[Rfam]
RNA: FMN riboswitch aptamer (RFN element)
RNA sequence: GCAAUCCUUCGGGGCGGGGUGCAAUUCCCCACCGGCGGUGUUACAUGGGACAGCAAGUAAGUCCGAUGUUCAGUCCGUGACCCGUGCAACAAGCUGAGCGGUUCGAGCCGACACUUUUGCACGGUUGACUCGGUGCAAGUCCGAGACCGACAGUAUAGUCUGGAUGGGAGAAGGAGAAC
Number, nucleotide and partner (000 for none) at each position: 001g000002c000003a000004a000005u175006c174007c173008u172009u171010c170011g000012g000013g000014g000015c000016g000017g029018g028019g027020u000021g000022c000023a000024a000025u000026u000027c019028c018029c017030c000031a159032c158033c149034g148035g078036c077037g076038g075039u000040g000041u000042u000043a000044c000045a000046u000047g000048g000049g000050a000051c000052a000053g000054c000055a000056a000057g000058u000059a000060a000061g000062u000063c000064c000065g000066a000067u000068g000069u000070u000071c000072a000073g147074u146075c038076c037077g036078u035079g000080a000081c000082c124083c123084g122085u121086g120087c119088a118089a117090c000091a000092a000093g000094c000095u000096g000097a000098g000099c000100g000101g000102u000103u000104c000105g000106a000107g000108c000109c000110g000111a000112c000113a000114c000115u000116u000117u089118u088119g087120c086121a085122c084123g083124g082125u000126u000127g000128a000129c145130u144131c143132g142133g141134u000135g000136c000137a000138a000139g000140u000141c133142c132143g131144a130145g129146a074147c073148c034149g033150a000151c162152a161153g160154u000155a000156u000157a000158g032159u031160c153161u152162g151163g000164a000165u000166g000167g000168g000169a000170g010171a009172a008173g007174g006175a005176g000177a000178a000179c000